[Rfam]
RNA sequence: GACCUCGCGCGCUUGGGAGAGCCUGCGAGGUGACGACAGGUCCGAAGUUUAAGGUUUGGGAGAACCUGACGCAUCGGAUCGCCUCACAGGGGAGAACCGCCGAUGCAGAAUACGCUUCUGGUCGGACUAUCGAAGCAGGUGGUGCUGG
Numbered sequence: 001g002a003c004c005u006c007g008c009g010c011g012c013u014u015g016g017g018a019g020a021g022c023c024u025g026c027g028a029g030g031u032g033a034c035g036a037c038a039g040g041u042c043c044g045a046a047g048u049u050u051a052a053g054g055u056u057u058g059g060g061a062g063a064a065c066c067u068g069a070c071g072c073a074u075c076g077g078a079u080c081g082c083c084u085c086a087c088a089g090g091g092g093a094g095a096a097c098c099g100c101c102g103a104u105g106c107a108g109a110a111u112a113c114g115c116u117u118c119u120g121g122u123c124g125g126a127c128u129a130u131c132g133a134a135g136c137a138g139g140u141g142g143u144g145c146u147g148g
Stems, first nucleotide, its partner, number of pairs: 002031007011022004039080006053066005100125005106120005
Dot-bracket structure: .(((((((..((((....))))..))))))).......((((((........(((((....)))))........))))))...................(((((.(((((.....)))))))))).......................